[Rfam]
RNA sequence: AUUUGAGUUAGAGGUUGCGUUUUUAAAGAGUAAUGAUUCAGAAGCCAGAUGGGGCAUAUGUUGAAUGCAUGAAAGGUGAAAAUGCCGAAACCUGUAUUGACCAUUUACAAUACAGGUUGGGACAGUUAUCGAAAGAAACUGGACUGUCACAUAUGUGAUGUGCUACCUAUAUA
Numbered sequence: 001a002u003u004u005g006a007g008u009u010a011g012a013g014g015u016u017g018c019g020u021u022u023u024u025a026a027a028g029a030g031u032a033a034u035g036a037u038u039c040a041g042a043a044g045c046c047a048g049a050u051g052g053g054g055c056a057u058a059u060g061u062u063g064a065a066u067g068c069a070u071g072a073a074a075g076g077u078g079a080a081a082a083u084g085c086c087g088a089a090a091c092c093u094g095u096a097u098u099g100a101c102c103a104u105u106u107a108c109a110a111u112a113c114a115g116g117u118u119g120g121g122a123c124a125g126u127u128a129u130c131g132a133a134a135g136a137a138a139c140u141g142g143a144c145u146g147u148c149a150c151a152u153a154u155g156u157g158a159u160g161u162g163c164u165a166c167c168u169a170u171a172u173a
Base pairs, nucleotide, nucleotide: 006168007167009165010164011163017085018084019083020082021081022080023079024078025077033070034069035068036066037065038064039063040062089118090117091116092115093114094113095112096111097110098109099108119145120144123141124140125139126138127137129135147158148157149156150155
A member of the RNA family "Lysine riboswitch aptamer" from Staphylococcus saprophyticus, 173 nucleotides long. NCBI's taxonomy places the organism under Bacteria, Bacillati, Bacilli, Caryophanales, Staphylococcus saprophyticus. About the family: Riboswitches are metabolite binding domains within certain messenger RNAs that serve as precision sensors for their corresponding targets. It scores 112 bits against the family's covariance model.